Record summary:
A member of the RNA family "Lysine riboswitch aptamer" from Clostridium liquoris, 177 nucleotides long. Pairs were carried over by alignment from the consensus structure, which is taken from published work. Taxonomically the source falls in Clostridium (Bacteria, Bacillati, Eubacteriales, Clostridiaceae).
[Rfam]
Nucleotides: 177
Base pairs, nucleotide, nucleotide: 007171008170009169010168011167016078017077018076019075020074021073022072023071024070032063033062034061035060036059037058038057082114083113084112085111086109087108088107089106090105091104092103115141116140117139118138119137120136121135122134123133124132125131143162144161145160146159147158148157149156
Number, partner (000 for none) and nucleotide at each position: 001000a002000a003000c004000u005000g006000a007171g008170g009169u010168a011167g012000a013000g014000g015000c016078g017077c018076g019075g020074a021073a022072u023071u024070u025000a026000a027000c028000a029000g030000u031000a032063g033062a034061a035060c036059u037058g038057u039000a040000g041000a042000g043000g044000u045000a046000a047000g048000c049000a050000c051000a052000a053000u054000g055000a056000a057038a058037c059036a060035g061034u062033u063032u064000g065000a066000a067000a068000g069000g070024a071023a072022g073021u074020u075019u076018c077017g078016c079000c080000g081000a082114a083113g084112c085111a086109u087108a088107c089106a090105g091104c092103a093000a094000a095000u096000g097000c098000u099000u100000u101000a102000a103092u104091g105090c106089u107088g108087u109086a110000u111085u112084g113083u114082u115141g116140g117139u118138u119137u120136u121135g122134u123133a124132u125131a126000g127000a128000a129000c130000a131125u132124a133123u134122a135121c136120a137119a138118a139117a140116c141115u142000g143162u144161c145160a146159c147158a148157a149156a150000u151000u152000a153000a154000a155000g156149u157148u158147u159146g160145u161144g162143g163000a164000g165000a166000g167011c168010u169009a170008u171007c172000a173000u174000u175000c176000a177000u